[Rfam]
RNA sequence: CAGUUUUUGUACUACACAAAGGUUCUGGACGUCGUAUGUCACCAGUGCCUGGUCUAGUGCAAACACUGC
Dot-bracket structure: ..((.(((((((...((..((((.((((((.......)))..))).)))).))...))))))).))...
RNA: mir-239 microRNA precursor family
Organism: Caenorhabditis sp. 36 PRJEB53466